Annotation
The record is a 198-nucleotide RNA from Cohnella fermenti, which matches "c-di-AMP riboswitch aptamer (ydaO/yuaA leader)" in Rfam. The literature on the family includes a 2004 paper in Proc Natl Acad Sci U S A by Barrick et al., "New RNA motifs suggest an expanded scope for riboswitches in bacterial genetic control".
RNA sequence: UUUUCCAGUACGCUUAAUCUCCGAUGAGGAGAACGGGGGACCCGCUGCGGAGGACGAAUCGUUCUGAUUCGGUCGGAAGCAGGCGAGCAAUCUUGGGGUGAAUAUCGAUUGAUAUAGCGAUUCAUGUAUCGAUUGAUUAGGGCGACUCUCUUCGUCCGAACCCGACAGCUAACCUCGUAAGCGUGGUAGAGAGAGGUC
Numbered sequence: 001u002u003u004u005c006c007a008g009u010a011c012g013c014u015u016a017a018u019c020u021c022c023g024a025u026g027a028g029g030a031g032a033a034c035g036g037g038g039g040a041c042c043c044g045c046u047g048c049g050g051a052g053g054a055c056g057a058a059u060c061g062u063u064c065u066g067a068u069u070c071g072g073u074c075g076g077a078a079g080c081a082g083g084c085g086a087g088c089a090a091u092c093u094u095g096g097g098g099u100g101a102a103u104a105u106c107g108a109u110u111g112a113u114a115u116a117g118c119g120a121u122u123c124a125u126g127u128a129u130c131g132a133u134u135g136a137u138u139a140g141g142g143c144g145a146c147u148c149u150c151u152u153c154g155u156c157c158g159a160a161c162c163c164g165a166c167a168g169c170u171a172a173c174c175u176c177g178u179a180a181g182c183g184u185g186g187u188a189g190a191g192a193g194a195g196g197u198c
Stems, first nucleotide, its partner, number of pairs: 011183004018032003033178006043095002096163003104137013140157004